[Rfam]
RNA sequence: AUGCCAAUGUGUACUAUGGCUUUUUAUUCCUAUGUGAUGAUGAAAAAUGUUCGUGUAGGGAUAGAAGCCAUUUUACACGUGGUGAG
Numbered sequence: 001a002u003g004c005c006a007a008u009g010u011g012u013a014c015u016a017u018g019g020c021u022u023u024u025u026a027u028u029c030c031u032a033u034g035u036g037a038u039g040a041u042g043a044a045a046a047a048u049g050u051u052c053g054u055g056u057a058g059g060g061a062u063a064g065a066a067g068c069c070a071u072u073u074u075a076c077a078c079g080u081g082g083u084g085a086g
Base pairs, nucleotide, nucleotide: 002085005082007080008079009078010077011076012075013074016071017070018069019068020067021066022065023064026062027061028060029059030058031057032056033055034054035053036052037051

This 86-nucleotide sequence from Dissostichus mawsoni belongs to the Rfam family "mir-135 microRNA precursor family". For this family Rfam cites "Identification of tissue-specific microRNAs from mouse" (Lagos-Quintana et al., Curr Biol, 2002). Rfam 15.1 lists 2,125 matches to the family in 647 species. The match comes from Rfam's covariance-model search (67 bits). Rfam links the family to the GO terms RISC complex and gene silencing by miRNA. Pairs were carried over by alignment from the consensus structure, which was predicted with PFOLD.